[Rfam]
RNA sequence: UGAAGAAACAUCAUUGAGUGCAGCGUUGAUGAACUUUUUUCGCUAAUUUUUCCGAGAUGAUUUCGCCAGCGCUGCACUCAAUCAUGUUUUUG
Numbered sequence: 001u002g003a004a005g006a007a008a009c010a011u012c013a014u015u016g017a018g019u020g021c022a023g024c025g026u027u028g029a030u031g032a033a034c035u036u037u038u039u040u041c042g043c044u045a046a047u048u049u050u051u052c053c054g055a056g057a058u059g060a061u062u063u064c065g066c067c068a069g070c071g072c073u074g075c076a077c078u079c080a081a082u083c084a085u086g087u088u089u090u091u092g
Base pairs, nucleotide, nucleotide: 006089007088008087009086010085011084013082014081015080016079017078018077019076020075021074022073023072024071025070026069027068028067030065031064032063